Source information: The record is a 308-nucleotide RNA sequence from Pseudoatta argentina, which matches "Arthropod 7SK RNA" in Rfam. It is annotated as a non-coding RNA gene. For this family Rfam cites "Arthropod 7SK RNA" (Gruber et al., Mol Biol Evol, 2008). The match comes from Rfam's covariance-model search (92 bits). NCBI's taxonomy places the organism under Eukaryota, Mandibulata, Allotriocarida, Aculeata, Pseudoatta. Clan: 7SK clan.

[Rfam]
RNA sequence: GGAAGCGUUUGCGGGAUGGCACAACUAAGCAUUGAUCGUUACGUAGAUCACCACUAUGUAGCAGAUCUGCUCAGUUUGUGUUAUCAUAUUUAUUGAGCUUUCAGAUCAUCCGAUAAGCUUUCUUGAUUUUCAGACUCCCGAUUGCGCAUAUGCAACUUCGUUAAAAUCACGGAUUUGCACGGCCUGCACGGUUGAGUCAUUCCUCAAAGUACCGCGAUUUCCAAAUUUGGGGGGUAAUCGAUUUGGUCAGAGGUAAUUUGUCGCUUCCACAUGCAGGCACUGCUGAUGGCGGUACGCCAUCUUUUUUG
Numbered sequence: 001g002g003a004a005g006c007g008u009u010u011g012c013g014g015g016a017u018g019g020c021a022c023a024a025c026u027a028a029g030c031a032u033u034g035a036u037c038g039u040u041a042c043g044u045a046g047a048u049c050a051c052c053a054c055u056a057u058g059u060a061g062c063a064g065a066u067c068u069g070c071u072c073a074g075u076u077u078g079u080g081u082u083a084u085c086a087u088a089u090u091u092a093u094u095g096a097g098c099u100u101u102c103a104g105a106u107c108a109u110c111c112g113a114u115a116a117g118c119u120u121u122c123u124u125g126a127u128u129u130u131c132a133g134a135c136u137c138c139c140g141a142u143u144g145c146g147c148a149u150a151u152g153c154a155a156c157u158u159c160g161u162u163a164a165a166a167u168c169a170c171g172g173a174u175u176u177g178c179a180c181g182g183c184c185u186g187c188a189c190g191g192u193u194g195a196g197u198c199a200u201u202c203c204u205c206a207a208a209g210u211a212c213c214g215c216g217a218u219u220u221c222c223a224a225a226u227u228u229g230g231g232g233g234g235u236a237a238u239c240g241a242u243u244u245g246g247u248c249a250g251a252g253g254u255a256a257u258u259u260g261u262c263g264c265u266u267c268c269a270c271a272u273g274c275a276g277g278c279a280c281u282g283c284u285g286a287u288g289g290c291g292g293u294a295c296g297c298c299a300u301c302u303u304u305u306u307u308g
Base pairs, nucleotide, nucleotide: 001268002267003266004265005264006263007262013087015085016084017083025074026073029070030069031068034067035066036065037064038062039061040060041059044056045055046054276298277297278296279293280292281291282290283289